[Rfam]
RNA sequence: AGGGCCGCGGUUCGCGAACUCCCGCGUUAACAAAACUAAGGAGGU
Numbered sequence: 001a002g003g004g005c006c007g008c009g010g011u012u013c014g015c016g017a018a019c020u021c022c023c024g025c026g027u028u029a030a031c032a033a034a035a036c037u038a039a040g041g042a043g044g045u
Base pairs, nucleotide, nucleotide: 006026007025008024009023010022016037
Rfam assigns this 45-nucleotide sequence from Cohnella faecalis to the family "PreQ1 (pre queuosine) riboswitch aptamer". For this family Rfam cites "Identification of four genes necessary for biosynthesis of the modified nucleoside queuosine" (Reader et al., J Biol Chem, 2004). A search with the family's covariance model found it, with a score of 40 bits. This family is a bacterial riboswitch that binds to the metabolite preQ1, an intermediate in the biosynthesis of the modified nucleoside queuosine from GTP. One example of this riboswitch is located in the leader of the Bacillus subtilis ykvJKLM (queCDEF) operon which encodes four genes necessary for queuosine production. The base pairs follow the family's consensus structure. Gene Ontology term of the family: queuosine biosynthetic process. The source organism's lineage runs through Bacteria, Bacillota, Bacilli, Caryophanales and Cohnella.